[Rfam]
RNA sequence: UGGCUGCGAAAAGAAUUUUGAUUUUUUAAAGAGACCGGAGAAAAUUAGCGGUCUCAGGCGACAGGCACAUACGCGAAGUCCUUCAAAACGUUUUUACAGCGUGAA
Numbered sequence: 001u002g003g004c005u006g007c008g009a010a011a012a013g014a015a016u017u018u019u020g021a022u023u024u025u026u027u028a029a030a031g032a033g034a035c036c037g038g039a040g041a042a043a044a045u046u047a048g049c050g051g052u053c054u055c056a057g058g059c060g061a062c063a064g065g066c067a068c069a070u071a072c073g074c075g076a077a078g079u080c081c082u083u084c085a086a087a088a089c090g091u092u093u094u095u096a097c098a099g100c101g102u103g104a105a
Base pairs, nucleotide, nucleotide: 001067002066004064005063006062007060008059013055014054017051018050019047020046021045022044023043072103073102074101075100

Rfam assigns this 105-nucleotide RNA sequence from Enterobacter sp. 638 to the family "Plasmid-encoded Shigella sRNA A". It is annotated as a small RNA. For this family Rfam cites "An integrated approach for finding overlooked genes in Shigella" (Peng et al., PLoS One, 2011).